[Rfam]
RNA sequence: AUCAGUCAGGCUGCUGGCUAUACACCAGGACUUAUCUGGUCCUGGAUAUAACCACUGCCAGACUGAAAG
Numbered sequence: 001a002u003c004a005g006u007c008a009g010g011c012u013g014c015u016g017g018c019u020a021u022a023c024a025c026c027a028g029g030a031c032u033u034a035u036c037u038g039g040u041c042c043u044g045g046a047u048a049u050a051a052c053c054a055c056u057g058c059c060a061g062a063c064u065g066a067a068a069g
Stems, first nucleotide, its partner, number of pairs: 005063003009059003015054003019050004025039005

Rfam assigns this 69-nucleotide sequence from Mus musculus to the family "mir-344 microRNA precursor family". Gene Ontology terms of the family: RISC complex and miRNA-mediated post-transcriptional gene silencing. On this family, see Chiang et al., Genes Dev 2010: "Mammalian microRNAs: experimental evaluation of novel and previously annotated genes". NCBI's taxonomy places the organism under Eukaryota, Sarcopterygii, Euarchontoglires, Glires, Mus.